Rfam assigns this 54-nucleotide sequence from Triplophysa tibetana to the family "UnaL2 LINE 3' element". NCBI's taxonomy places the organism under Eukaryota, Actinopteri, Clupeocephala, Otomorpha, Triplophysa. By type it is a cis-regulatory element. The eel long interspersed element (LINE) UnaL2 and its partner short interspersed element (SINE) share a conserved 3' tail containing a stem-loop that is critical for their retrotransposition. Presumably, the first step of retrotransposition is the recognition of their 3' tails by UnaL2-encoded reverse transcriptase. The solution structure of a 17-nucleotide RNA derived from the 3' tail of UnaL2 was determined by NMR. On this family, see Baba et al., RNA 2004: "Solution structure of an RNA stem-loop derived from the 3' conserved region of eel LINE UnaL2".
[Rfam]
RNA sequence: AGGAUAAAGAAAUGUAAAUCGCUUUGGAUAAAAGCGUCUUCCAAAUGCCUAAAU
Numbered sequence: 001a002g003g004a005u006a007a008a009g010a011a012a013u014g015u016a017a018a019u020c021g022c023u024u025u026g027g028a029u030a031a032a033a034g035c036g037u038c039u040u041c042c043a044a045a046u047g048c049c050u051a052a053a054u
Base pairs, nucleotide, nucleotide: 013043014041016039020036021035022034023033024032025031